[Rfam]
RNA sequence: GGCGUAAAGCGCACGUAGGCGGGUUUUUAAGUCGGCCGUGAAAGGCACUGGCUCAACCGGUGCAUGUCGGUCGAUACUGGAAGCCUUGAGUAUGGGAGAGGGAACUGGAAUUCCCGGUGUAGCGGUGAAAUGCGUAGAUAUCGGGAGGAACACCAGUGGCGAAGGCGGGUUCCUGGUCCAUUACUGACGCUGAGGUGCGAAAGCCGGGGGAGCGAACGGGAUUAGAUACCCCGGUAGUCCCGGCUGUAAACGAUGGAUGCUAGGUGUGGGGGGGUUACCUUCUGUGCCGCAGUUAACGCGAUAAGCAUCCCGCCUGGGGAGUACGAUCGCAAGAUUGAAACUCAAAGGAAU
Numbered sequence: 001g002g003c004g005u006a007a008a009g010c011g012c013a014c015g016u017a018g019g020c021g022g023g024u025u026u027u028u029a030a031g032u033c034g035g036c037c038g039u040g041a042a043a044g045g046c047a048c049u050g051g052c053u054c055a056a057c058c059g060g061u062g063c064a065u066g067u068c069g070g071u072c073g074a075u076a077c078u079g080g081a082a083g084c085c086u087u088g089a090g091u092a093u094g095g096g097a098g099a100g101g102g103a104a105c106u107g108g109a110a111u112u113c114c115c116g117g118u119g120u121a122g123c124g125g126u127g128a129a130a131u132g133c134g135u136a137g138a139u140a141u142c143g144g145g146a147g148g149a150a151c152a153c154c155a156g157u158g159g160c161g162a163a164g165g166c167g168g169g170u171u172c173c174u175g176g177u178c179c180a181u182u183a184c185u186g187a188c189g190c191u192g193a194g195g196u197g198c199g200a201a202a203g204c205c206g207g208g209g210g211a212g213c214g215a216a217c218g219g220g221a222u223u224a225g226a227u228a229c230c231c232c233g234g235u236a237g238u239c240c241c242g243g244c245u246g247u248a249a250a251c252g253a254u255g256g257a258u259g260c261u262a263g264g265u266g267u268g269g270g271g272g273g274g275u276u277a278c279c280u281u282c283u284g285u286g287c288c289g290c291a292g293u294u295a296a297c298g299c300g301a302u303a304a305g306c307a308u309c310c311c312g313c314c315u316g317g318g319g320a321g322u323a324c325g326a327u328c329g330c331a332a333g334a335u336u337g338a339a340a341c342u343c344a345a346a347g348g349a350a351u
Stems, first nucleotide, its partner, number of pairs: 001314003009311001011198004016192001018191003022085007030078002032074007045063007089185003092181005100174007107151001111147008122133003159166002203244006212238002217233004255310006263288011292299002316343003325336004

Overview:
Bacterial small subunit ribosomal RNA: a 351-nucleotide part of an RNA from an uncultured bacterium. The family has 99 seed sequences and 42,628 matches in Rfam 15.1.